Source information
Shown here is a 352-nucleotide sequence from Hypnocyclicus thermotrophus, a member of the family "transfer-messenger RNA". A search with the family's covariance model found it, with a score of 176 bits. Bacterial tmRNA, also known as 10Sa RNA or SsrA, is named for its dual tRNA and mRNA-like properties. The literature on the family includes a 2002 paper in Nucleic Acids Res by Laslett et al., "BRUCE: a program for the detection of transfer-messenger RNA genes in nucleotide sequences".
RNA sequence: GGGAGUGUCAAGGUUUCGACAGGAAUACGGGAACUAUAAGUAGCAAGUCAGGGUGAUUCCUGUGAAAAAUCAACACAUGUUUUUACAUGGAAACGAAAAUUACGCUUUAGCUGCCUAAUUUACGCAGCUUGCUCUAUUUUCUCUAUGCCGAUACGAGAUUAUAGAGUAUCAAAUGAUUUCGGCUUACUAAAUAUAAUUCGCUUAGUUAUAUUUAGGACAAUUUUAUAAGCUCGUAUGUUAAUAUCCUUGUCUACAGGAAGUUAACAUAUUAAAUUUAAAUGUAGACUAAGCUUGUAGAAGCUUAUAGCGUCUCUAUUCUUGGACACGGGUUCGAUUCCCGUCACUUCCACCA
Numbered sequence: 001g002g003g004a005g006u007g008u009c010a011a012g013g014u015u016u017c018g019a020c021a022g023g024a025a026u027a028c029g030g031g032a033a034c035u036a037u038a039a040g041u042a043g044c045a046a047g048u049c050a051g052g053g054u055g056a057u058u059c060c061u062g063u064g065a066a067a068a069a070u071c072a073a074c075a076c077a078u079g080u081u082u083u084u085a086c087a088u089g090g091a092a093a094c095g096a097a098a099a100u101u102a103c104g105c106u107u108u109a110g111c112u113g114c115c116u117a118a119u120u121u122a123c124g125c126a127g128c129u130u131g132c133u134c135u136a137u138u139u140u141c142u143c144u145a146u147g148c149c150g151a152u153a154c155g156a157g158a159u160u161a162u163a164g165a166g167u168a169u170c171a172a173a174u175g176a177u178u179u180c181g182g183c184u185u186a187c188u189a190a191a192u193a194u195a196a197u198u199c200g201c202u203u204a205g206u207u208a209u210a211u212u213u214a215g216g217a218c219a220a221u222u223u224u225a226u227a228a229g230c231u232c233g234u235a236u237g238u239u240a241a242u243a244u245c246c247u248u249g250u251c252u253a254c255a256g257g258a259a260g261u262u263a264a265c266a267u268a269u270u271a272a273a274u275u276u277a278a279a280u281g282u283a284g285a286c287u288a289a290g291c292u293u294g295u296a297g298a299a300g301c302u303u304a305u306a307g308c309g310u311c312u313c314u315a316u317u318c319u320u321g322g323a324c325a326c327g328g329g330u331u332c333g334a335u336u337c338c339c340g341u342c343a344c345u346u347c348c349a350c351c352a
Stems, first nucleotide, its partner, number of pairs: 001348007020321008029312001034307008044294005049062005054072004107131001109129006135168006142158003147183005153177001187215009200230005233269010244258003249286007325341005